About this RNA:
The record is a 76-nucleotide sequence from Macaca mulatta, which matches "mir-320 microRNA precursor family" in Rfam.
[Rfam]
RNA sequence: GUAUCAAUAAGCCUUCUCUUCCCAGUUCUUCUUGGAGUCAAGAAAAGCUGGGUUGAGAGGCACAGAAAAGAAAAAG
Numbered sequence: 001g002u003a004u005c006a007a008u009a010a011g012c013c014u015u016c017u018c019u020u021c022c023c024a025g026u027u028c029u030u031c032u033u034g035g036a037g038u039c040a041a042g043a044a045a046a047g048c049u050g051g052g053u054u055g056a057g058a059g060g061c062a063c064a065g066a067a068a069a070g071a072a073a074a075a076g
Base pairs, nucleotide, nucleotide: 014059015058016057017056018055021052022051023050024049025048029044030043031042032041033040034039
A search with the family's covariance model found it, with a score of 82 bits. Lineage of the source: Eukaryota > Chordata > Craniata > Euarchontoglires > Macaca.